About this RNA:
This 392-nucleotide RNA from Polaribacter vadi belongs to the Rfam family "transfer-messenger RNA". A search with the family's covariance model found it, with a score of 146 bits. Rfam links the family to the GO term RNA catabolic process. Clan: tRNA clan. By type it is a non-coding RNA gene. Bacterial tmRNA, also known as 10Sa RNA or SsrA, is named for its dual tRNA and mRNA-like properties.
[Rfam]
Nucleotides: 392
Base pairs, nucleotide, nucleotide: 001388002387003386004385005384006383007382019361020360021358022357023356024355025354027352030351031350032349033348034347038343039342043335044334045333046332047331048068049067050066051065055081056080057079058078059077060076110139111138112137114135115134116133117132172214173213174212175211176210177209179203180202181201182200184198185197186196191225193223230260232258233257234256235255236254237253238252242273244271245270246269247268276310277309278307279306280305281304282303283302284301286299287298288297290327291326292325293324294322295321365381366380367379368378369377
Number, partner (000 for none) and nucleotide at each position: 001388g002387g003386g004385g005384a006383c007382g008000a009000c010000u011000g012000g013000u014000u015000u016000u017000g018000a019361c020360a021358g022357c023356a024355a025354g026000g027352a028000c029000a030351g031350u032349u033348g034347a035000u036000u037000u038343g039342u040000a041000a042000g043335c044334a045333u046332a047331u048068c049067a050066a051065g052000g053000a054000u055081u056080g057079a058078a059077a060076u061000u062000a063000c064000a065051c066050u067049u068048g069000u070000a071000a072000a073000a074000c075000u076060a077059u078058u079057u080056c081055a082000a083000c084000u085000u086000u087000u088000u089000a090000a091000a092000c093000g094000g095000c096000g097000a098000a099000g100000a101000u102000a103000a104000c105000u106000a107000c108000g109000c110139u111138u112137u113000a114135g115134c116133u117132g118000c119000a120000u121000a122000a123000u124000u125000c126000g127000a128000a129000u130000c131000a132117c133116a134115g135114u136000a137112g138111a139110a140000u141000u142000u143000g144000c145000c146000u147000a148000g149000g150000c151000u152000c153000a154000c155000a156000a157000g158000g159000u160000g161000a162000g163000c164000a165000a166000g167000c168000u169000u170000u171000a172214u173213g174212u175211c176210c177209a178000c179203g180202a181201a182200a183000a184198g185197c186196c187000u188000u189000g190000a191225u192000u193223u194000a195000c196186g197185g198184c199000g200182u201181u202180u203179c204000a205000c206000u207000u208000u209177u210176g211175g212174a213173u214172a215000u216000c217000g218000u219000a220000a221000a222000a223193g224000u225191a226000a227000a228000u229000a230260u231000a232258g233257a234256a235255a236254a237253c238252c239000u240000g241000a242273a243000g244271c245270u246269u247268u248000g249000g250000u251000g252238g253237g254236u255235u256234u257233u258232u259000g260230a261000a262000a263000c264000u265000a266000a267000a268247g269246a270245a271244g272000a273242u274000a275000a276310g277309u278307u279306a280305a281304a282303a283302g284301u285000g286299g287298a288297u289000u290327g291326u292325u293324c294322u295321u296000a297288a298287u299286c300000a301284g302283c303282u304281u305280u306279u307278a308000a309277a310276c311000g312000a313000a314000a315000a316000c317000c318000a319000a320000g321295a322294a323000a324293g325292a326291a327290c328000u329000a330000a331047g332046u333045a334044u335043g336000u337000a338000g339000a340000a341000a342039g343038c344000u345000u346000u347034u348033u349032a350031g351030c352027u353000g354025c355024u356023u357022g358021u359000u360020u361019g362000g363000a364000c365381c366380c367379g368378a369377g370000u371000u372000c373000g374000a375000u376000u377369c378368u379367c380366g381365g382007c383006g384005u385004c386003u387002c388001c389000a390000c391000u392000u